[Rfam]
RNA sequence: CUGCAGUGAUGACCUCUUAGGACACCUUUGGAUUCUCCAUGAAAACAACUUCUGACCUGAGCAGC
Dot-bracket structure: ((((........................................................)))).

Small nucleolar RNA SNORD58: a 65-nucleotide RNA from Oryzias latipes.
NCBI's taxonomy places the organism under Eukaryota, Gnathostomata, Euteleostomi, Adrianichthyoidei, Oryzias.
Gene Ontology terms of the family: RNA processing and nucleolus.
About the family: snoRNA U58 is found in introns 1, 3 and 6 of the ribosomal protein RPL17 gene in humans.
For this family Rfam cites "Purified box C/D snoRNPs are able to reproduce site-specific 2'-O-methylation of target RNA in vitro" (Galardi et al., Mol Cell Biol, 2002).